[Rfam]
RNA sequence: GCUGGAGUCUGUGGCGGCUCUGUAAUCCAAGCUACUGGGAAGCUCGAGUUUGUGGAUGGUUGAGGUUGGGAGCCCUGCUGGUCAGUGCUGCACGUUGAACCGGCGUCCGCACUAAGCUUGGCGUCAACAUGGGUACCCUGGAGGAGUCCGGAGUAUCCAGGUUGUCUAACGAGAUAUGCCAAGGUCUAGGGAGAAAUCCACAGCCUAAAGUAUCCGCGGCAAGCAGUAGUGGGAUCUCGCUGGCGAGUGAGUGCUGUUCAGUAGCCCAGCCAACCAAGGCAGACCAAUUCUUU
Numbered sequence: 001g002c003u004g005g006a007g008u009c010u011g012u013g014g015c016g017g018c019u020c021u022g023u024a025a026u027c028c029a030a031g032c033u034a035c036u037g038g039g040a041a042g043c044u045c046g047a048g049u050u051u052g053u054g055g056a057u058g059g060u061u062g063a064g065g066u067u068g069g070g071a072g073c074c075c076u077g078c079u080g081g082u083c084a085g086u087g088c089u090g091c092a093c094g095u096u097g098a099a100c101c102g103g104c105g106u107c108c109g110c111a112c113u114a115a116g117c118u119u120g121g122c123g124u125c126a127a128c129a130u131g132g133g134u135a136c137c138c139u140g141g142a143g144g145a146g147u148c149c150g151g152a153g154u155a156u157c158c159a160g161g162u163u164g165u166c167u168a169a170c171g172a173g174a175u176a177u178g179c180c181a182a183g184g185u186c187u188a189g190g191g192a193g194a195a196a197u198c199c200a201c202a203g204c205c206u207a208a209a210g211u212a213u214c215c216g217c218g219g220c221a222a223g224c225a226g227u228a229g230u231g232g233g234a235u236c237u238c239g240c241u242g243g244c245g246a247g248u249g250a251g252u253g254c255u256g257u258u259c260a261g262u263a264g265c266c267c268a269g270c271c272a273a274c275c276a277a278g279g280c281a282g283a284c285c286a287a288u289u290c291u292u293u
Stems, first nucleotide, its partner, number of pairs: 001043003004021006026040003046290004051286002057281002060278001061276001064271007075264007083256005089251001091249003095245001100243006107233002110231005116224005122218003125164004130159007138151005165171001173214005182206004190199003
The record is a 293-nucleotide sequence from Caligus rogercresseyi, which matches "Metazoan signal recognition particle RNA" in Rfam. It scores 185 bits against the family's covariance model. NCBI's taxonomy places the organism under Eukaryota, Bilateria, Panarthropoda, Allotriocarida, Caligus. From the family's description: The signal recognition particle (SRP) is a universally conserved ribonucleoprotein. It is involved in the co-translational targeting of proteins to membranes. The eukaryotic SRP consists of a 300-nucleotide 7S RNA and six proteins: SRPs 72, 68, 54, 19, 14, and 9. Archaeal SRP consists of a 7S RNA and homologues of the eukaryotic SRP19 and SRP54 proteins. Rfam classes the family as a non-coding RNA gene. A reference for the family is Wild et al. (2002), "Towards the structure of the mammalian signal recognition particle", Curr Opin Struct Biol.